[Rfam]
RNA sequence: AUCGGGGUCCGGGCCCCUCUGGCAAUCUCCCAUGAGGUUGCGAUGUCGGACUCUCUCA
Numbered sequence: 001a002u003c004g005g006g007g008u009c010c011g012g013g014c015c016c017c018u019c020u021g022g023c024a025a026u027c028u029c030c031c032a033u034g035a036g037g038u039u040g041c042g043a044u045g046u047c048g049g050a051c052u053c054u055c056u057c058a
Stems, first nucleotide, its partner, number of pairs: 006052007022041008
A member of the RNA family "terC RNA" from Microvirga aerophila, 58 nucleotides long. It is annotated as a cis-regulatory element. It scores 58 bits against the family's covariance model.